[Rfam]
RNA sequence: CGUGAGAGUUAGAUGGGUAGUGUAAGCGAGCCGAUUGUAGGUCUAAGUUAGAUCUCAAAUCGGCUCGCUUACACUACCCAUCUAACUCUCACG
Numbered sequence: 001c002g003u004g005a006g007a008g009u010u011a012g013a014u015g016g017g018u019a020g021u022g023u024a025a026g027c028g029a030g031c032c033g034a035u036u037g038u039a040g041g042u043c044u045a046a047g048u049u050a051g052a053u054c055u056c057a058a059a060u061c062g063g064c065u066c067g068c069u070u071a072c073a074c075u076a077c078c079c080a081u082c083u084a085a086c087u088c089u090c091a092c093g
Base pairs, nucleotide, nucleotide: 001093002092003091004090005089006088007087008086009085010084011083012082013081015079016078017077018076019075020074021073022072023071024070026068027067028066029065030064031063032062033061034060035059040056041055
mir-449 microRNA precursor family: a 93-nucleotide RNA from Thrips palmi. Rfam links the family to the GO terms RISC complex and miRNA-mediated post-transcriptional gene silencing. A search with the family's covariance model found it, with a score of 63 bits.